The family of this 103-nucleotide RNA sequence from Streptomyces showdoensis is "ZMP/ZTP riboswitch aptamer (pfl RNA motif)". NCBI's taxonomy places the organism under Bacteria, Bacillati, Actinomycetota, Actinomycetes, Streptomyces. A search with the family's covariance model found it, with a score of 45 bits.
RNA sequence: GUUCCGGGCCGUGACUGGCGCUUGAGGUGGAUCACCACCGGGGAGCGGCCCGGCGGACGCGCCCCGCGCGUCCGUGUCGCGGUCGCGCGCCUGGGCAUCCACC
Numbered sequence: 001g002u003u004c005c006g007g008g009c010c011g012u013g014a015c016u017g018g019c020g021c022u023u024g025a026g027g028u029g030g031a032u033c034a035c036c037a038c039c040g041g042g043g044a045g046c047g048g049c050c051c052g053g054c055g056g057a058c059g060c061g062c063c064c065c066g067c068g069c070g071u072c073c074g075u076g077u078c079g080c081g082g083u084c085g086c087g088c089g090c091c092u093g094g095g096c097a098u099c100c101a102c103c
Base pairs, nucleotide, nucleotide: 004053005052006051007050008049009048010047011046012045015042016041017091018090019089020088021087027038028037029036030035082096083095084094